[Rfam]
RNA sequence: GUAGAUGCUCAUUCUGCUUUUUUAUGUCUGCCGCUGGCAACAUAAUCCCUGGAAUGAUGCAGAGCCCUUUACCGAUACCUGUUAUCUGCCAUCUCACAAAUUAUUGAUGAGAGCUUCAGAUAUUACGUUGAGUCUGGUAUCAGCUGUUGUCUGUCGACCUGAUUUUACACCUGCCUGGUUGCAGGUGUUUUUUU
Numbered sequence: 001g002u003a004g005a006u007g008c009u010c011a012u013u014c015u016g017c018u019u020u021u022u023u024a025u026g027u028c029u030g031c032c033g034c035u036g037g038c039a040a041c042a043u044a045a046u047c048c049c050u051g052g053a054a055u056g057a058u059g060c061a062g063a064g065c066c067c068u069u070u071a072c073c074g075a076u077a078c079c080u081g082u083u084a085u086c087u088g089c090c091a092u093c094u095c096a097c098a099a100a101u102u103a104u105u106g107a108u109g110a111g112a113g114c115u116u117c118a119g120a121u122a123u124u125a126c127g128u129u130g131a132g133u134c135u136g137g138u139a140u141c142a143g144c145u146g147u148u149g150u151c152u153g154u155c156g157a158c159c160u161g162a163u164u165u166u167a168c169a170c171c172u173g174c175c176u177g178g179u180u181g182c183a184g185g186u187g188u189u190u191u192u193u194u
Stems, first nucleotide, its partner, number of pairs: 001065002006061003009057004015052001017051001019044001023040001028037001030035001074141006084121005090109004149158003167188008
Dot-bracket structure: ((...(((((((..(.(.(...(....(.(....).)..)...)......)).)))).)))..))........((((((....(((((.((((............)))).......)))))..............)))))).......(((....)))........((((((((......))))))))......
RNA: GlmZ RNA activator of glmS mRNA
Organism: Tatumella morbirosei